[Rfam]
RNA sequence: CCGUCCGAGGGGCGCUGCAGCAGGGGAAACCUGUCAGGCUCGGAUGGGGCGUUACCCAGAACGCAUCAACGGCGCCCAUUCGCA
Numbered sequence: 001c002c003g004u005c006c007g008a009g010g011g012g013c014g015c016u017g018c019a020g021c022a023g024g025g026g027a028a029a030c031c032u033g034u035c036a037g038g039c040u041c042g043g044a045u046g047g048g049g050c051g052u053u054a055c056c057c058a059g060a061a062c063g064c065a066u067c068a069a070c071g072g073c074g075c076c077c078a079u080u081c082g083c084a
Base pairs, nucleotide, nucleotide: 002046003045004044005043006042007041008040021033022032023031024030
This 84-nucleotide RNA sequence from Zestomonas carbonaria belongs to the Rfam family "SAH (S-adenosyl-L-homocysteine) riboswitch aptamer". The literature on the family includes a 2008 paper in Mol Cell by Wang et al., "Riboswitches that sense S-adenosylhomocysteine and activate genes involved in coenzyme recycling". It scores 64 bits against the family's covariance model. Pairs were carried over by alignment from the consensus structure, which is taken from published work.